[Rfam]
RNA sequence: GUCUUCGAUGAUGAUGUUGAAAUGUGAAAACUUUCGUUCUUCCGAGGUGGGAGGGCCACCUCCCUCGCUGUGGAACCCUUCUUGGAGACCUGAGCUGUGGAGAC
Numbered sequence: 001g002u003c004u005u006c007g008a009u010g011a012u013g014a015u016g017u018u019g020a021a022a023u024g025u026g027a028a029a030a031c032u033u034u035c036g037u038u039c040u041u042c043c044g045a046g047g048u049g050g051g052a053g054g055g056c057c058a059c060c061u062c063c064c065u066c067g068c069u070g071u072g073g074a075a076c077c078c079u080u081c082u083u084g085g086a087g088a089c090c091u092g093a094g095c096u097g098u099g100g101a102g103a104c
Stems, first nucleotide, its partner, number of pairs: 003102004
The family of this 104-nucleotide RNA from Colocasia esculenta is "Small nucleolar RNA Z159/U59".
The family's consensus secondary structure was predicted with PFOLD.
On this family, see Chen et al., Nucleic Acids Res 2003: "The high diversity of snoRNAs in plants: identification and comparative study of 120 snoRNA genes from Oryza sativa".